[Rfam]
RNA sequence: AUAUGAAAAAGGCAAACUUUCCGAAAGGUUAGGACGCAAAGCCUAGGGUCUAAGGUUAAAAAACUACGAUCGCCUGGCUACCAAG
Numbered sequence: 001a002u003a004u005g006a007a008a009a010a011g012g013c014a015a016a017c018u019u020u021c022c023g024a025a026a027g028g029u030u031a032g033g034a035c036g037c038a039a040a041g042c043c044u045a046g047g048g049u050c051u052a053a054g055g056u057u058a059a060a061a062a063a064c065u066a067c068g069a070u071c072g073c074c075u076g077g078c079u080a081c082c083a084a085g
Stems, first nucleotide, its partner, number of pairs: 012037002017032002021028002040079004045075003048070003055064003
Dot-bracket structure: ...........((...((..((....))..))...))..((((.((((((....(((....)))...)))..)))))))......
Rfam assigns this 85-nucleotide sequence from Tenuibacillus multivorans to the family "c-di-GMP-I riboswitch aptamer". Taxonomically the source falls in Tenuibacillus (Bacteria, Bacilli, Caryophanales, Bacillaceae). It scores 80 bits against the family's covariance model.